[Rfam]
RNA: mir-511 microRNA precursor family
Organism: Rattus norvegicus
RNA sequence: GAUACCCACCAUGCCUUUUGCUCUGCACUCAGUACAUAAUCAUUUGUGAAUGUGUAGCAAAAGACAGGAUGGGGAUCCA
Numbered sequence: 001g002a003u004a005c006c007c008a009c010c011a012u013g014c015c016u017u018u019u020g021c022u023c024u025g026c027a028c029u030c031a032g033u034a035c036a037u038a039a040u041c042a043u044u045u046g047u048g049a050a051u052g053u054g055u056a057g058c059a060a061a062a063g064a065c066a067g068g069a070u071g072g073g074g075a076u077c078c079a
Stems, first nucleotide, its partner, number of pairs: 001077003006072003012066002015063008024054004029049003033046002036043001
Dot-bracket structure: (((..(((...((.((((((((.((((.(((.((.(......).))))).)))).)))))))).))...)))..)))..